[Rfam]
RNA sequence: UCUGAUGGGUGUAACUGGCGACACGUGGUCAACCACGAAGGAGCUCACAUUCAUAUCGCCGUUCGCCUGAGCAAAGUAU
Numbered sequence: 001u002c003u004g005a006u007g008g009g010u011g012u013a014a015c016u017g018g019c020g021a022c023a024c025g026u027g028g029u030c031a032a033c034c035a036c037g038a039a040g041g042a043g044c045u046c047a048c049a050u051u052c053a054u055a056u057c058g059c060c061g062u063u064c065g066c067c068u069g070a071g072c073a074a075a076g077u078a079u
Stems, first nucleotide, its partner, number of pairs: 004051004009046001011044002015040002017067005025036004056074001058072002
ZMP/ZTP riboswitch aptamer (pfl RNA motif): a 79-nucleotide sequence from Paenibacillus aquistagni.